[Rfam]
RNA sequence: ACAGAAUAUUGGCAAACUUAUGGAAACAUAAUGUACGCAAAGCUAAGUGCCUAAAGGAUUUAAGUCCUAUGGUUGACUAGUUGCUGAU
Dot-bracket structure: ...........((...((((((....))))).)...))..((((.((((((....((((....))))...)))..)))))))......
Numbered sequence: 001a002c003a004g005a006a007u008a009u010u011g012g013c014a015a016a017c018u019u020a021u022g023g024a025a026a027c028a029u030a031a032u033g034u035a036c037g038c039a040a041a042g043c044u045a046a047g048u049g050c051c052u053a054a055a056g057g058a059u060u061u062a063a064g065u066c067c068u069a070u071g072g073u074u075g076a077c078u079a080g081u082u083g084c085u086g087a088u
Stems, first nucleotide, its partner, number of pairs: 012038002017033001018031005041082004046078003049073003056067004
Source information
The record is an 88-nucleotide sequence from Paenibacillus sp. GP183, which matches "c-di-GMP-I riboswitch aptamer" in Rfam. The organism belongs to Paenibacillus, within Bacteria. A search with the family's covariance model found it, with a score of 68 bits. The family is grouped with related families in Rfam's "c-di-GMP_I riboswitch clan". The family's consensus secondary structure is taken from published work.